[Rfam]
RNA: S15-Flavobacteria ribosomal protein leader
RNA sequence: UAUAUUUGCGCCUUGAUAUGAACGACGUAUCAUUACAUAAUAAUCAUUUACAAUAAUAUUGGCAUG
Numbered sequence: 001u002a003u004a005u006u007u008g009c010g011c012c013u014u015g016a017u018a019u020g021a022a023c024g025a026c027g028u029a030u031c032a033u034u035a036c037a038u039a040a041u042a043a044u045c046a047u048u049u050a051c052a053a054u055a056a057u058a059u060u061g062g063c064a065u066g
Stems, first nucleotide, its partner, number of pairs: 014032006